[Rfam]
Rfam assigns this 85-nucleotide sequence to the family "RAGATH-10 RNA". Pairs were carried over by alignment from the consensus structure, which is taken from published work. For this family Rfam cites "New classes of self-cleaving ribozymes revealed by comparative genomics analysis" (Weinberg et al., Nat Chem Biol, 2015).
RNA sequence: GAAACCUCAUCUUGCUUACACGCCAUCCGGGCGUCGAGCAGUGUUUUUAUAAAACACGGACAUUCCGUCCGGGUGAGGAGAGAGA
Numbered sequence: 001g002a003a004a005c006c007u008c009a010u011c012u013u014g015c016u017u018a019c020a021c022g023c024c025a026u027c028c029g030g031g032c033g034u035c036g037a038g039c040a041g042u043g044u045u046u047u048u049a050u051a052a053a054a055c056a057c058g059g060a061c062a063u064u065c066c067g068u069c070c071g072g073g074u075g076a077g078g079a080g081a082g083a084g085a
Stems, first nucleotide, its partner, number of pairs: 005078008015038003020034005041057005058070004